[Rfam]
RNA sequence: ACCAGCACGAAAGAAUCGACCAACGGGUCCACACACUGAGCGCACCGGACACUGUCGGGAGACAGUAUCCACAGCCUCUUCCCUUUACUGCCCGUGGGAAAUUCUCCGAUCAAGCGGCUGAAAGAGCCUGGCGAAACGAGCCGAAUGCCCCCGCCCCCUUGACGUGAAGAGCCAGGCAUCCGUGCCGGCGAAGAUGGAGGGAUACCUUCUAUGCCCACUUGGACGGGUGCCUGUUUGUCUUACCGGGGGCGGUGUCGCCUUUACUGGCAGUGGCAGUUCGAUAUAGCACAGUUAUGCGAUUGGCCCCUCUUUCUCUUUGGGAGAGAGGUGGUUAACUCAACGGAGAUUACUCUUCGCUGCUGG
Numbered sequence: 001a002c003c004a005g006c007a008c009g010a011a012a013g014a015a016u017c018g019a020c021c022a023a024c025g026g027g028u029c030c031a032c033a034c035a036c037u038g039a040g041c042g043c044a045c046c047g048g049a050c051a052c053u054g055u056c057g058g059g060a061g062a063c064a065g066u067a068u069c070c071a072c073a074g075c076c077u078c079u080u081c082c083c084u085u086u087a088c089u090g091c092c093c094g095u096g097g098g099a100a101a102u103u104c105u106c107c108g109a110u111c112a113a114g115c116g117g118c119u120g121a122a123a124g125a126g127c128c129u130g131g132c133g134a135a136a137c138g139a140g141c142c143g144a145a146u147g148c149c150c151c152c153g154c155c156c157c158c159u160u161g162a163c164g165u166g167a168a169g170a171g172c173c174a175g176g177c178a179u180c181c182g183u184g185c186c187g188g189c190g191a192a193g194a195u196g197g198a199g200g201g202a203u204a205c206c207u208u209c210u211a212u213g214c215c216c217a218c219u220u221g222g223a224c225g226g227g228u229g230c231c232u233g234u235u236u237g238u239c240u241u242a243c244c245g246g247g248g249g250c251g252g253u254g255u256c257g258c259c260u261u262u263a264c265u266g267g268c269a270g271u272g273g274c275a276g277u278u279c280g281a282u283a284u285a286g287c288a289c290a291g292u293u294a295u296g297c298g299a300u301u302g303g304c305c306c307c308u309c310u311u312u313c314u315c316u317u318u319g320g321g322a323g324a325g326a327g328g329u330g331g332u333u334a335a336c337u338c339a340a341c342g343g344a345g346a347u348u349a350c351u352c353u354u355c356g357c358u359g360c361u362g363g
Stems, first nucleotide, its partner, number of pairs: 002363006008356004014301005023095006038080003100348003104345004116128004130155004164264006175256003186251002189248001235242001303332003307328002